[Rfam]
RNA sequence: AAAUGUUAAGGGCAAACUUAUCGAAAGAUAGGGACGCAAAGCCACGAGUCUAAGGCACUUUGGUGCUAUGAUAGUCGGGUUGCCAAA
Numbered sequence: 001a002a003a004u005g006u007u008a009a010g011g012g013c014a015a016a017c018u019u020a021u022c023g024a025a026a027g028a029u030a031g032g033g034a035c036g037c038a039a040a041g042c043c044a045c046g047a048g049u050c051u052a053a054g055g056c057a058c059u060u061u062g063g064u065g066c067u068a069u070g071a072u073a074g075u076c077g078g079g080u081u082g083c084c085a086a087a
Base pairs, nucleotide, nucleotide: 012037013036017032018031019030020029021028022027040081041080042079043078045077046076047075048072049071050070055066056065057064058063
A member of the RNA family "c-di-GMP-I riboswitch aptamer" from Bacillus methanolicus, 87 nucleotides long. Pairs were carried over by alignment from the consensus structure, which is taken from published work. The source organism's lineage runs through Bacteria, Bacillati, Bacilli, Bacillaceae and Bacillus methanolicus. Rfam links the family to the GO term cyclic-di-GMP binding. Rfam 15.1 lists 5,092 matches to the family in 1,772 species. The family is grouped with related families in Rfam's "c-di-GMP_I riboswitch clan".